[Rfam]
RNA sequence: GCUUCUCCUGUUUUCAAGUGUCGUAGUGGCGUUUACAAACCGAUGUAUUGUAAACCCUCUAUGUUCACUUCGAAAAUAAGAAGG
Numbered sequence: 001g002c003u004u005c006u007c008c009u010g011u012u013u014u015c016a017a018g019u020g021u022c023g024u025a026g027u028g029g030c031g032u033u034u035a036c037a038a039a040c041c042g043a044u045g046u047a048u049u050g051u052a053a054a055c056c057c058u059c060u061a062u063g064u065u066c067a068c069u070u071c072g073a074a075a076a077u078a079a080g081a082a083g084g
Stems, first nucleotide, its partner, number of pairs: 002083005010077006017070001018068003022063005028057002032054007039046002
Shown here is an 84-nucleotide RNA sequence from Haemonchus placei, a member of the family "mir-5904 microRNA precursor family". The match comes from Rfam's covariance-model search (79 bits). Pairs were carried over by alignment from the consensus structure, which was predicted with RNAalifold.